[Rfam]
RNA sequence: UUGUUAAGUGAUGACAUGACAAAGGAAGUAUCACGUUAUCACCCUCUUGUCAUGUAUAUCUCAUUGUCAUAUUAUCACCUUUAAUGACAUAUGUGUCAAUGAUUGAACAUGAUGAUGUGACAUUCUGUUUGUCAUGUUAUCACCUAACGGAA
Numbered sequence: 001u002u003g004u005u006a007a008g009u010g011a012u013g014a015c016a017u018g019a020c021a022a023a024g025g026a027a028g029u030a031u032c033a034c035g036u037u038a039u040c041a042c043c044c045u046c047u048u049g050u051c052a053u054g055u056a057u058a059u060c061u062c063a064u065u066g067u068c069a070u071a072u073u074a075u076c077a078c079c080u081u082u083a084a085u086g087a088c089a090u091a092u093g094u095g096u097c098a099a100u101g102a103u104u105g106a107a108c109a110u111g112a113u114g115a116u117g118u119g120a121c122a123u124u125c126u127g128u129u130u131g132u133c134a135u136g137u138u139a140u141c142a143c144c145u146a147a148c149g150g151a152a
Stems, first nucleotide, its partner, number of pairs: 001150006008143016025126001027124003031120011045106002049103005056096004072087004
RNA: MIR4371 microRNA precursor family
Organism: Glycine soja